[Rfam]
RNA sequence: AAACACAGAGAUAAAAACACAACGUAAGAAUAUCCGCUUACAGAGCCGGUAGGUAGUCCGGCCGCGCUGUUCAGGCGUAAGUAACCCUCCCUCCUUGGGCCGUCCGUUCUCUGUGCAUUACAA
Numbered sequence: 001a002a003a004c005a006c007a008g009a010g011a012u013a014a015a016a017a018c019a020c021a022a023c024g025u026a027a028g029a030a031u032a033u034c035c036g037c038u039u040a041c042a043g044a045g046c047c048g049g050u051a052g053g054u055a056g057u058c059c060g061g062c063c064g065c066g067c068u069g070u071u072c073a074g075g076c077g078u079a080a081g082u083a084a085c086c087c088u089c090c091c092u093c094c095u096u097g098g099g100c101c102g103u104c105c106g107u108u109c110u111c112u113g114u115g116c117a118u119u120a121c122a123a
Stems, first nucleotide, its partner, number of pairs: 004115008045062005064078005089099003
The record is a 123-nucleotide RNA sequence from Cuneatibacter caecimuris, which matches "azaaromatic riboswitch aptamer (yjdF RNA)" in Rfam. The match comes from Rfam's covariance-model search (68 bits). NCBI's taxonomy places the organism under Bacteria, Bacillati, Bacillota, Lachnospiraceae, Cuneatibacter.